[Rfam]
Rfam assigns this 87-nucleotide RNA sequence from Triticum aestivum to the family "MIR1120/MIR1122 microRNA precursor family".

RNA sequence: GUACUCUCUCCGUCCCAUAACAUAAGAACGCUUUUGACACUAGUGUAGUAUCAAAAACGUUCUUAUAUUAUGGGACGGAGGGAGUAC
Dot-bracket structure: ..(((.(((((.(((((.((.(((((((((.((((((.(((.....))).)))))).))))))))).)).))))).))))).)))..
Pairs were carried over by alignment from the consensus structure, which was predicted with RNAalifold. The match comes from Rfam's covariance-model search (89 bits).